[Rfam]
Shown here is a 140-nucleotide sequence from Synaphobranchus kaupii, a member of the family "Small nucleolar RNA SNORA72". U72 is a member of the H/ACA class of snoRNAs. The snoRNA gene is located in intron 4 of the ribosomal L30 protein gene in human, mouse and chicken. Rfam classes the family as an H/ACA-box small nucleolar RNA. It scores 43 bits against the family's covariance model.

RNA sequence: AUGCGAAUAAUUCUCGCCUGUUGGAUCUAUUGGUGAUCCGAGCAGGGCUAGAAAUUCGCUAGAUGAAUAACCAGCUCGAGAGCUAUCAGAUUGGAUGCAAUGUCUCUUCUGUUCUCAUCCCUGCUUUGUUGGUUACAAUU
Number, nucleotide and partner (000 for none) at each position: 001a000002u000003g059004c058005g057006a000007a000008u000009a000010a000011u000012u000013c000014u000015c000016g000017c046018c045019u044020g043021u042022u041023g039024g038025a037026u036027c035028u000029a000030u000031u000032g000033g000034u000035g027036a026037u025038c024039c023040g000041a022042g021043c020044a019045g018046g017047g000048c000049u000050a000051g000052a000053a000054a000055u000056u000057c005058g004059c003060u000061a000062g000063a000064u000065g000066a000067a000068u000069a000070a133071c132072c131073a130074g129075c128076u000077c000078g000079a000080g000081a000082g000083c000084u000085a000086u117087c000088a115089g114090a113091u000092u000093g000094g000095a000096u000097g000098c000099a000100a000101u000102g000103u000104c000105u000106c000107u000108u000109c000110u000111g000112u000113u090114c089115u088116c000117a086118u000119c000120c000121c000122u000123g000124c000125u000126u000127u000128g075129u074130u073131g072132g071133u070134u000135a000136c000137a000138a000139u000140u000